FMN riboswitch aptamer (RFN element): a 131-nucleotide sequence from Streptomyces chumphonensis.
[Rfam]
RNA sequence: UCGCGCGCUCCGGGGUCGGUGCAAUUCCGAACCGGCGGUUACAGUCCGCGACCCGGCUGACUCCAUCAGCCGGUUGACCUGGUGGAACUCCAGGACCGACGGUGAGAGUCCGGAUGGUAGGCAGUGCGCGG
Number, nucleotide and partner (000 for none) at each position: 001u000002c000003g129004c128005g127006c126007g125008c124009u123010c120011c000012g000013g000014g000015g000016u000017c029018g028019g027020u000021g000022c000023a000024a000025u000026u000027c019028c018029g017030a000031a109032c108033c098034g097035g049036c048037g047038g046039u000040u000041a000042c000043a000044g096045u095046c038047c037048g036049c035050g000051a000052c000053c073054c072055g000056g000057c000058u000059g000060a000061c000062u000063c000064c000065a000066u000067c000068a000069g000070c000071c000072g054073g053074u000075u000076g000077a000078c094079c093080u092081g091082g090083u000084g000085g000086a000087a000088c000089u000090c082091c081092a080093g079094g078095a045096c044097c034098g033099a000100c112101g111102g110103u000104g000105a000106g000107a000108g032109u031110c102111c101112g100113g000114a000115u000116g000117g000118u000119a000120g010121g000122c000123a009124g008125u007126g006127c005128g004129c003130g000131g000